[Rfam]
RNA sequence: GGCACCUGUACUCGCUGCGGUGCAGCGAUGGUGAAGGA
Numbered sequence: 001g002g003c004a005c006c007u008g009u010a011c012u013c014g015c016u017g018c019g020g021u022g023c024a025g026c027g028a029u030g031g032u033g034a035a036g037g038a
Stems, first nucleotide, its partner, number of pairs: 005031002013027006

A member of the RNA family "Selenocysteine insertion sequence 4" from Clostridium sp. C105KSO13, 38 nucleotides long. Rfam links the family to the GO term selenocysteine incorporation. The organism belongs to Clostridium, within Bacteria. For this family Rfam cites "Molecular analysis of the grd operon coding for genes of the glycine reductase and of the thioredoxin system from Clostridium sticklandii" (Graentzdoerffer et al., Arch Microbiol, 2001). By type it is a cis-regulatory element.